[Rfam]
RNA sequence: UCCUCGCCCGACAAAUCGCCAUCGAAGCUUACAAACAGAGACGGUGCUCCCUCGGGUCGCCGUCUCGGGCAUCUGUCCACGAAGCUUUGGGAGAAAGUCCCCGGACACACGUUAACUUCCUUCUGGAAGCAGAAACGCCGCGGAAACGCGCCGCCAUAGAAGCACAGCGGCUGACCUCCAAGACCUGCGCUCCGGAUUCACAAUGCCCGUCCUCCCCCUCCGCCCUGCCCCGUCGCUACAUCGUUGCAGCAUCCCCCCUUGCAUCCUGCCGUCUCGGCGUCGCCUUCCGCUUCCGGGACCACAUGGACGAAGAUAUGAGUCCGCGCCCGGUGUCGGUUGGGGUGAGAAGCGGUUUGGGCGCAAGGGGGAUCUGCUUCGAUGACGGGGUGGCCGCGUGGGGAGGUUCGGCUUGCCGGGGCGAAUUCAAGGGUCGGUCGGAGGGUCGUUCGUCGAGAUAUAACAGGUAUGCGAUUGCCCAUCUCUUCGCUGGGAUGGGUUACUCGAUGGGGCUUAUUCUCGGUGCGAGG
Numbered sequence: 001u002c003c004u005c006g007c008c009c010g011a012c013a014a015a016u017c018g019c020c021a022u023c024g025a026a027g028c029u030u031a032c033a034a035a036c037a038g039a040g041a042c043g044g045u046g047c048u049c050c051c052u053c054g055g056g057u058c059g060c061c062g063u064c065u066c067g068g069g070c071a072u073c074u075g076u077c078c079a080c081g082a083a084g085c086u087u088u089g090g091g092a093g094a095a096a097g098u099c100c101c102c103g104g105a106c107a108c109a110c111g112u113u114a115a116c117u118u119c120c121u122u123c124u125g126g127a128a129g130c131a132g133a134a135a136c137g138c139c140g141c142g143g144a145a146a147c148g149c150g151c152c153g154c155c156a157u158a159g160a161a162g163c164a165c166a167g168c169g170g171c172u173g174a175c176c177u178c179c180a181a182g183a184c185c186u187g188c189g190c191u192c193c194g195g196a197u198u199c200a201c202a203a204u205g206c207c208c209g210u211c212c213u214c215c216c217c218c219u220c221c222g223c224c225c226u227g228c229c230c231c232g233u234c235g236c237u238a239c240a241u242c243g244u245u246g247c248a249g250c251a252u253c254c255c256c257c258c259u260u261g262c263a264u265c266c267u268g269c270c271g272u273c274u275c276g277g278c279g280u281c282g283c284c285u286u287c288c289g290c291u292u293c294c295g296g297g298a299c300c301a302c303a304u305g306g307a308c309g310a311a312g313a314u315a316u317g318a319g320u321c322c323g324c325g326c327c328c329g330g331u332g333u334c335g336g337u338u339g340g341g342g343u344g345a346g347a348a349g350c351g352g353u354u355u356g357g358g359c360g361c362a363a364g365g366g367g368g369a370u371c372u373g374c375u376u377c378g379a380u381g382a383c384g385g386g387g388u389g390g391c392c393g394c395g396u397g398g399g400g401a402g403g404u405u406c407g408g409c410u411u412g413c414c415g416g417g418g419c420g421a422a423u424u425c426a427a428g429g430g431u432c433g434g435u436c437g438g439a440g441g442g443u444c445g446u447u448c449g450u451c452g453a454g455a456u457a458u459a460a461c462a463g464g465u466a467u468g469c470g471a472u473u474g475c476c477c478a479u480c481u482c483u484u485c486g487c488u489g490g491g492a493u494g495g496g497u498u499a500c501u502c503g504a505u506g507g508g509g510c511u512u513a514u515u516c517u518c519g520g521u522g523c524g525a526g527g
Stems, first nucleotide, its partner, number of pairs: 002527006008520004014473006022091001023089006038066009095512003099509004116129005368444003374440006380433004475496008
Annotation: The family of this 527-nucleotide sequence from Colletotrichum plurivorum is "RNase MRP". RNase MRP is an enzymatically active ribonucleoprotein with two distinct roles in eukaryotes. In mitochondria it plays a direct role in the initiation of mitochondrial DNA replication. In the nucleus it is involved in precursor rRNA processing, where it cleaves the internal transcribed spacer 1 between 18S and 5.8S rRNAs. Despite distinct functions, RNase MRP has been shown to be evolutionarily related to RNase P. Like eukaryotic RNase P, RNase MRP is not catalytically active without associated protein subunits. It is annotated as a ribozyme.